RNA: Small Cajal body specific RNA 8
RNA sequence: GGGGAGGCUGCUGCACAAAUUGGGCUGAAGUACUGCUCUCAUUGUCCGUGUACCUUCCUAGAAUAAUCUGCCUUUUAGCAAAAUAAAUCUCAUAGACUUCAAGGAUUCAUACAUUCUCAGGGCUGGAAGAU
Numbered sequence: 001g002g003g004g005a006g007g008c009u010g011c012u013g014c015a016c017a018a019a020u021u022g023g024g025c026u027g028a029a030g031u032a033c034u035g036c037u038c039u040c041a042u043u044g045u046c047c048g049u050g051u052a053c054c055u056u057c058c059u060a061g062a063a064u065a066a067u068c069u070g071c072c073u074u075u076u077a078g079c080a081a082a083a084u085a086a087a088u089c090u091c092a093u094a095g096a097c098u099u100c101a102a103g104g105a106u107u108c109a110u111a112c113a114u115u116c117u118c119a120g121g122g123c124u125g126g127a128a129g130a131u
Stems, first nucleotide, its partner, number of pairs: 002058006015045004022038004068125001070123005083110002088105002091103001